Rfam assigns this 79-nucleotide RNA from Klebsiella sp. RIT-PI-d to the family "sroB RNA". The family's consensus secondary structure was predicted with LocARNA.

RNA sequence: UUACCGGAGUUCGCUCCGGCAUAAUAAUAAAGAUGAAAUUCCUCUUUGACGGGCCAAUAGCAAUAUUGGCCACUUUUUU
Numbered sequence: 001u002u003a004c005c006g007g008a009g010u011u012c013g014c015u016c017c018g019g020c021a022u023a024a025u026a027a028u029a030a031a032g033a034u035g036a037a038a039u040u041c042c043u044c045u046u047u048g049a050c051g052g053g054c055c056a057a058u059a060g061c062a063a064u065a066u067u068g069g070c071c072a073c074u075u076u077u078u079u
Stems, first nucleotide, its partner, number of pairs: 007016003025030001052071008
On this family, see Vogel et al., Nucleic Acids Res 2003: "RNomics in Escherichia coli detects new sRNA species and indicates parallel transcriptional output in bacteria".